Shown here is a 119-nucleotide RNA from Populus tomentosa, a member of the family "U5 spliceosomal RNA". The base pairs follow the family's consensus structure, which is taken from published work. By type it is a spliceosomal small nuclear RNA. From the family's description: U5 RNA is a component of both types of known spliceosome. The precise function of this molecule is unknown, though it is known that the 5' loop is required for splice site selection and p220 binding, and that both the 3' stem-loop and the Sm site are important for Sm protein binding and cap methylation. The organism belongs to Populus, within Eukaryota.

RNA sequence: AGCCGCGUGGUGGGCACAGAGCGAACUAUUCUUUCGCCUUUUACUAAAGAACACCGUGUGCUCGCCGCAGAUGGCGGUAUACGCCUAUUUUUGGAGGGCUCUCUUCCUUCGGAAAGACC
Numbered sequence: 001a002g003c004c005g006c007g008u009g010g011u012g013g014g015c016a017c018a019g020a021g022c023g024a025a026c027u028a029u030u031c032u033u034u035c036g037c038c039u040u041u042u043a044c045u046a047a048a049g050a051a052c053a054c055c056g057u058g059u060g061c062u063c064g065c066c067g068c069a070g071a072u073g074g075c076g077g078u079a080u081a082c083g084c085c086u087a088u089u090u091u092u093g094g095a096g097g098g099c100u101c102u103c104u105u106c107c108u109u110c111g112g113a114a115a116g117a118c119c
Stems, first nucleotide, its partner, number of pairs: 003077004008067011027053001029051006098119001100117003